[Rfam]
Shown here is an 87-nucleotide sequence from Halarsenatibacter silvermanii, a member of the family "c-di-GMP-I riboswitch aptamer". Lineage of the source: Bacteria > Bacillati > Bacillota > Clostridia > Halarsenatibacter.
RNA sequence: AGAAAAAAAGGGCAAACCUAUCGCAAGGUAGGGGCGCAAAGCUUAAGGUCUAAAGGUUUAAUUCUUUAAGAUUGCUGAGCUGCUAGA
Numbered sequence: 001a002g003a004a005a006a007a008a009a010g011g012g013c014a015a016a017c018c019u020a021u022c023g024c025a026a027g028g029u030a031g032g033g034g035c036g037c038a039a040a041g042c043u044u045a046a047g048g049u050c051u052a053a054a055g056g057u058u059u060a061a062u063u064c065u066u067u068a069a070g071a072u073u074g075c076u077g078a079g080c081u082g083c084u085a086g087a
Base pairs, nucleotide, nucleotide: 012037013036017032018031019030020029021028022027040081041080042079043078046076047075048072049071050070055066056065